RNA: Actinobacteria sRNA Ms_IGR-5
RNA sequence: ACACGAGAAGGGAGGUGGUUCGGCAGAUGUAUCGAAACCGGACGCGUGAGGUGACUGCGGGCUAGCGGCCCGUCGUCGCAACUCGAAUUCGGCGCCGGACCCGCACGUGUGGUGUGUGCAGCCGGCCCUAUUCCCAAGCAGUCACCCGACCCGCGAGCCGCCGGUACGUCCGGCCGGCUUCCUCCGCCCGGCCCGUCCGGUGCGGCAGGAACCACGGCUCGCGGGUCGUCUGCG
Numbered sequence: 001a002c003a004c005g006a007g008a009a010g011g012g013a014g015g016u017g018g019u020u021c022g023g024c025a026g027a028u029g030u031a032u033c034g035a036a037a038c039c040g041g042a043c044g045c046g047u048g049a050g051g052u053g054a055c056u057g058c059g060g061g062c063u064a065g066c067g068g069c070c071c072g073u074c075g076u077c078g079c080a081a082c083u084c085g086a087a088u089u090c091g092g093c094g095c096c097g098g099a100c101c102c103g104c105a106c107g108u109g110u111g112g113u114g115u116g117u118g119c120a121g122c123c124g125g126c127c128c129u130a131u132u133c134c135c136a137a138g139c140a141g142u143c144a145c146c147c148g149a150c151c152c153g154c155g156a157g158c159c160g161c162c163g164g165u166a167c168g169u170c171c172g173g174c175c176g177g178c179u180u181c182c183u184c185c186g187c188c189c190g191g192c193c194c195g196u197c198c199g200g201u202g203c204g205g206c207a208g209g210a211a212c213c214a215c216g217g218c219u220c221g222c223g224g225g226u227c228g229u230c231u232g233c234g
Stems, first nucleotide, its partner, number of pairs: 015058005060127004065122002068119002071116001073114001147228013160178006